[Rfam]
RNA: mir-750 microRNA precursor family
RNA sequence: UUCAUGUCUGAGUUGGACAGGGGAUCUUGACAGUUUCAUGGUUCGCUGCCAGAUCUAUCUUUCCAGCUCACGCGUGGA
Numbered sequence: 001u002u003c004a005u006g007u008c009u010g011a012g013u014u015g016g017a018c019a020g021g022g023g024a025u026c027u028u029g030a031c032a033g034u035u036u037c038a039u040g041g042u043u044c045g046c047u048g049c050c051a052g053a054u055c056u057a058u059c060u061u062u063c064c065a066g067c068u069c070a071c072g073c074g075u076g077g078a
Stems, first nucleotide, its partner, number of pairs: 001078007009070009019060003022056006029049001031048004